[Rfam]
Shown here is a 109-nucleotide sequence from Spirosoma validum, a member of the family "SAM riboswitch aptamer (S box leader)". Pairs were carried over by alignment from the consensus structure, which is taken from published work. NCBI's taxonomy places the organism under Bacteria, Bacteroidota, Cytophagia, Cytophagaceae, Spirosoma.

RNA sequence: AGCUUAUCCAGAAAGACGGAGGGAAAGGACCCGAAGAUGUCUUGGCAACCAACCAAUUCGAGGGAAUGGUGCCAAUUUCCGCCCGGUCGAUAACCGGGAUAGAUAAGUU
Dot-bracket structure: ((((((((....(((((...(((...[[[)))......)))))((((.((..((.......))....))))))...(]]].((((((.....))))))..)))))))))